A member of the RNA family "Glutamine-II riboswitch aptamer", 58 nucleotides long. For this family Rfam cites "Structure and ligand binding of the glutamine-II riboswitch" (Huang et al., Nucleic Acids Res, 2019). Rfam's curators put it in the seed alignment.

[Rfam]
RNA sequence: AAACGUUCACCCUGAUACAGGGCGCAGUGGUUCGCAGGUCAUGGAACGGGGGCCUGUU
Numbered sequence: 001a002a003a004c005g006u007u008c009a010c011c012c013u014g015a016u017a018c019a020g021g022g023c024g025c026a027g028u029g030g031u032u033c034g035c036a037g038g039u040c041a042u043g044g045a046a047c048g049g050g051g052g053c054c055u056g057u058u
Base pairs, nucleotide, nucleotide: 004048005047006046007045008044010022011021012020013019014018034057035056036055037054038053039051040050